RNA sequence: GGAUAUGAUGAAAUGGCAUAACUGUUUUGUGACACCCAGUCUGAUCUGCUUCGGCAGAGUGAGUGAUUUGCCAUAUUCUCUGAUCC
Numbered sequence: 001g002g003a004u005a006u007g008a009u010g011a012a013a014u015g016g017c018a019u020a021a022c023u024g025u026u027u028u029g030u031g032a033c034a035c036c037c038a039g040u041c042u043g044a045u046c047u048g049c050u051u052c053g054g055c056a057g058a059g060u061g062a063g064u065g066a067u068u069u070g071c072c073a074u075a076u077u078c079u080c081u082g083a084u085c086c
Base pairs, nucleotide, nucleotide: 001086002085003084014073015072016071017070018069

A member of the RNA family "Small nucleolar RNA snoR4a" from Brassica oleracea, 86 nucleotides long. A reference for the family is Brown et al. (2001), "Multiple snoRNA gene clusters from Arabidopsis", RNA. By type it is a C/D-box small nucleolar RNA. The base pairs follow the family's consensus structure, which was predicted with WAR. Rfam links the family to the GO terms RNA processing and nucleolus. The match comes from Rfam's covariance-model search (78 bits).